Bacterial RNase P class A: a 330-nucleotide RNA from Desulfurobacterium thermolithotrophum.
RNA sequence: GGAGCAGGCUGCGGGGUCGCUCGGAGGGUUUAGUCCUCCGAGAGGAAAGUCCGGGCUCCACAGGGCAGGGAGCUGGCGUUAAGCCAGGUGAGGGUAACCUCACGGAUAGGGCCACAGAAAACAUACCGCCACCUAUAAGGUGGUAAGGGUGAAAAGGUGGUGUAAGAGACCACCGCUCUUUCCCGUGAGGGAAAGAGGCACGGUAACCCCCUCCCGGAGCAAGGCUAAAUAGGCUGGCGUUUGAGGGUUGCCCGUCCGAAGCCAGCGGGUAAGCCGCAUAAGAUAAAUGACCCCUUUAAACAGAACCCGGCUUACACGCCUGCUCCAUAA
Number, nucleotide and partner (000 for none) at each position: 001g326002g325003a324004g323005c322006a321007g320008g319009c318010u000011g315012c000013g294014g293015g292016g291017u290018c289019g000020c042021u041022c040023g039024g038025a037026g036027g035028g034029u000030u000031u000032a000033g000034u028035c027036c026037u025038c024039c023040g022041a021042g020043a000044g000045g000046a000047a313048a312049g311050u000051c310052c309053g308054g307055g306056c219057u218058c217059c216060a000061c000062a000063g253064g252065g251066c250067a000068g215069g214070g213071a212072g211073c087074u086075g085076g084077c083078g000079u000080u000081a000082a000083g077084c076085c075086a074087g073088g103089u000090g101091a100092g099093g098094g000095u000096a000097a000098c093099c092100u091101c090102a000103c088104g210105g209106a000107u000108a000109g208110g207111g204112c203113c202114a000115c000116a000117g000118a000119a000120a000121a000122c000123a000124u000125a000126c148127c147128g144129c143130c142131a141132c140133c139134u138135a000136u000137a000138a134139g133140g132141u131142g130143g129144u128145a000146a000147g127148g126149g000150u000151g000152a000153a000154a000155a000156g174157g173158u172159g171160g170161u169162g000163u000164a000165a000166g000167a000168g000169a161170c160171c159172a158173c157174c156175g199176c197177u196178c195179u194180u000181u193182c191183c190184c189185g000186u000187g000188a000189g184190g183191g182192a000193a181194a179195g178196a177197g176198g000199c175200a000201c000202g113203g112204u111205a000206a000207c110208c109209c105210c104211c072212u071213c070214c069215c068216g059217g058218a057219g056220c000221a000222a000223g275224g274225c273226u272227a000228a000229a000230u000231a000232g000233g266234c265235u264236g263237g262238c261239g000240u000241u000242u000243g000244a000245g257246g256247g255248u254249u000250g066251c065252c064253c063254g248255u247256c246257c245258g000259a000260a000261g238262c237263c236264a235265g234266c233267g000268g000269g000270u000271a000272a226273g225274c224275c223276g000277c000278a000279u000280a000281a000282g000283a000284u000285a000286a000287a000288u000289g018290a017291c016292c015293c014294c013295u000296u000297u000298a000299a000300a000301c000302a000303g000304a000305a000306c055307c054308c053309g052310g051311c049312u048313u047314a000315c011316a000317c000318g009319c008320c007321u006322g005323c004324u003325c002326c001327a000328u000329a000330a000
Notes: The family's consensus secondary structure is taken from published work. It scores 283 bits against the family's covariance model. Rfam links the family to the GO terms dimeric ribonuclease P complex, tRNA processing and ribonuclease P activity.